[Rfam]
RNA sequence: UGGUAGAUGCACCCUGAUAACUGACCCCUAGUAGACUUUCGGCUGCUAGGGGAUUUUUCU
Numbered sequence: 001u002g003g004u005a006g007a008u009g010c011a012c013c014c015u016g017a018u019a020a021c022u023g024a025c026c027c028c029u030a031g032u033a034g035a036c037u038u039u040c041g042g043c044u045g046c047u048a049g050g051g052g053a054u055u056u057u058u059c060u
Stems, first nucleotide, its partner, number of pairs: 002013003025052010
A member of the RNA family "Nitrogen stress-induced RNA 1" from Brasilonema sennae, 60 nucleotides long.
The pairing is the family consensus, mapped onto this sequence.
The family's RNA type in Rfam is small RNA.
The family has 17 seed sequences and 962 matches in Rfam 15.1.
It scores 65 bits against the family's covariance model.
The source organism's lineage runs through Bacteria, Nostocales, Brasilonema, Bromeliae group (in: Brasilonema) and Brasilonema sennae.